A member of the RNA family "MIR6274 microRNA precursor family" from Prunus avium, 105 nucleotides long.

[Rfam]
RNA sequence: GGAUAGCACUGUUUUACUAUUUCCGGCCAAUAACAUAAUGACACGUGAAAAAGUUAUCCUACGUGUCAUUGCGUUAUUGACCGGAGAUAGCAUAAAGUGUUAUCC
Numbered sequence: 001g002g003a004u005a006g007c008a009c010u011g012u013u014u015u016a017c018u019a020u021u022u023c024c025g026g027c028c029a030a031u032a033a034c035a036u037a038a039u040g041a042c043a044c045g046u047g048a049a050a051a052a053g054u055u056a057u058c059c060u061a062c063g064u065g066u067c068a069u070u071g072c073g074u075u076a077u078u079g080a081c082c083g084g085a086g087a088u089a090g091c092a093u094a095a096a097g098u099g100u101u102a103u104c105c
Stems, first nucleotide, its partner, number of pairs: 002104004012095002015092001017090004022085005028079007036071012050057001